Small nucleolar RNA Z103: a 107-nucleotide sequence from Anisodus acutangulus. Rfam classes the family as a C/D-box small nucleolar RNA. The family's consensus secondary structure was predicted with PFOLD. For this family Rfam cites "The high diversity of snoRNAs in plants: identification and comparative study of 120 snoRNA genes from Oryza sativa" (Chen et al., Nucleic Acids Res, 2003).
[Rfam]
RNA sequence: AUGGAUGUGAUGACUUUUCCCCAGAUGAUCGAAGCUGAAAUUACUGAGCGUUCUUUAUGUAUUUUCUUCCUUCGGGUAGAAAAUCGAAGCCAGAUAGUCUGAUCCAU
Numbered sequence: 001a002u003g004g005a006u007g008u009g010a011u012g013a014c015u016u017u018u019c020c021c022c023a024g025a026u027g028a029u030c031g032a033a034g035c036u037g038a039a040a041u042u043a044c045u046g047a048g049c050g051u052u053c054u055u056u057a058u059g060u061a062u063u064u065u066c067u068u069c070c071u072u073c074g075g076g077u078a079g080a081a082a083a084u085c086g087a088a089g090c091c092a093g094a095u096a097g098u099c100u101g102a103u104c105c106a107u
Stems, first nucleotide, its partner, number of pairs: 001107005